[Rfam]
RNA sequence: GGUAUUCCUUAUCUAUCUAAUCGUUGAUUAAUCUGGAACCUGUCCCAUUGAACUCUUCGUUCUUCACGCUGGAACAACCAAAAAUUCAAUAAGACAGGUUCUGCGUUUAGUUGCCGCGCUCUAAAAAUGG
Numbered sequence: 001g002g003u004a005u006u007c008c009u010u011a012u013c014u015a016u017c018u019a020a021u022c023g024u025u026g027a028u029u030a031a032u033c034u035g036g037a038a039c040c041u042g043u044c045c046c047a048u049u050g051a052a053c054u055c056u057u058c059g060u061u062c063u064u065c066a067c068g069c070u071g072g073a074a075c076a077a078c079c080a081a082a083a084a085u086u087c088a089a090u091a092a093g094a095c096a097g098g099u100u101c102u103g104c105g106u107u108u109a110g111u112u113g114c115c116g117c118g119c120u121c122u123a124a125a126a127a128u129g130g
Stems, first nucleotide, its partner, number of pairs: 001115004022105003035102010047090005054083001056081002
A member of the RNA family "tp2" from Klebsiella pneumoniae, 130 nucleotides long. The family's consensus secondary structure was predicted with RNAalifold. By type it is a small RNA. The literature on the family includes a 2003 paper in Nucleic Acids Res by Hershberg et al., "A survey of small RNA-encoding genes in Escherichia coli".